[Rfam]
RNA sequence: GCCAAAAGUAGAGGUGCGAUUAAUAUCAGUAUCGUUUUAUCAGGGUGAUGCCGAAGACAAAACGAGAAAGGAUUAAUUGCCGAAGUAAGAUUGAAGAUCGCUUCAUCUUGCUGGUGUUAUUGUCGAAAGAGAUAACACUGCCAUAGUCAAACCAGUUACGCUGGUAACAAAUAACUAUGGAGCGCUACCAUGAAG
Numbered sequence: 001g002c003c004a005a006a007a008g009u010a011g012a013g014g015u016g017c018g019a020u021u022a023a024u025a026u027c028a029g030u031a032u033c034g035u036u037u038u039a040u041c042a043g044g045g046u047g048a049u050g051c052c053g054a055a056g057a058c059a060a061a062a063c064g065a066g067a068a069a070g071g072a073u074u075a076a077u078u079g080c081c082g083a084a085g086u087a088a089g090a091u092u093g094a095a096g097a098u099c100g101c102u103u104c105a106u107c108u109u110g111c112u113g114g115u116g117u118u119a120u121u122g123u124c125g126a127a128a129g130a131g132a133u134a135a136c137a138c139u140g141c142c143a144u145a146g147u148c149a150a151a152c153c154a155g156u157u158a159c160g161c162u163g164g165u166a167a168c169a170a171a172u173a174a175c176u177a178u179g180g181a182g183c184g185c186u187a188c189c190a191u192g193a194a195g
Stems, first nucleotide, its partner, number of pairs: 008188004016080009032065007084112008093104004113139009123129001141180007